Description:
Shown here is a 149-nucleotide RNA from Aquisalibacillus elongatus, a member of the family "EGFOA RNA". Lineage of the source: Bacteria > Bacillota > Bacilli > Bacillaceae > Aquisalibacillus. The family's RNA type in Rfam is small RNA.
[Rfam]
RNA sequence: ACACUCCCAGAGUGUCUUUUUGUUUACUAAACAAUCUGAACACACACCCCGUGCCUGUUGCGAAAGCAAGGUAGGUGAAAACAUACGCUGUGGUAGCGUAGUCGGUAAAGCAGGACCUGGGCGACUUGUUGAAAAAACGGUGUUUUCAU
Numbered sequence: 001a002c003a004c005u006c007c008c009a010g011a012g013u014g015u016c017u018u019u020u021u022g023u024u025u026a027c028u029a030a031a032c033a034a035u036c037u038g039a040a041c042a043c044a045c046a047c048c049c050c051g052u053g054c055c056u057g058u059u060g061c062g063a064a065a066g067c068a069a070g071g072u073a074g075g076u077g078a079a080a081a082c083a084u085a086c087g088c089u090g091u092g093g094u095a096g097c098g099u100a101g102u103c104g105g106u107a108a109a110g111c112a113g114g115a116c117c118u119g120g121g122c123g124a125c126u127u128g129u130u131g132a133a134a135a136a137a138c139g140g141u142g143u144u145u146u147c148a149u
Stems, first nucleotide, its partner, number of pairs: 006121005051116002054114004058069004075149008085099004100126005
Dot-bracket structure: .....[[[[[........................................[[.[[[[((((....)))).....((((((((..((((.......))))(((((......]]]]]]]]]]])))))...............))))))))